[Rfam]
RNA: purD RNA motif
RNA sequence: GUAGAUGAUCUUGUGUGUUCGGUGUUUCCGUUUGUAGCCUCUAAGGUGAGGAUUUGCCGCCUAAUAGGUCGCUCUUGUCUGAGUUGUUGGCUUUUUUUGGGGCCACGCAACUUGGUAACGCCCGCUCGGGC
Numbered sequence: 001g002u003a004g005a006u007g008a009u010c011u012u013g014u015g016u017g018u019u020c021g022g023u024g025u026u027u028c029c030g031u032u033u034g035u036a037g038c039c040u041c042u043a044a045g046g047u048g049a050g051g052a053u054u055u056g057c058c059g060c061c062u063a064a065u066a067g068g069u070c071g072c073u074c075u076u077g078u079c080u081g082a083g084u085u086g087u088u089g090g091c092u093u094u095u096u097u098u099g100g101g102g103c104c105a106c107g108c109a110a111c112u113u114g115g116u117a118a119c120g121c122c123c124g125c126u127c128g129g130g131c
Stems, first nucleotide, its partner, number of pairs: 003073002007070005020059005027052003037047004088105006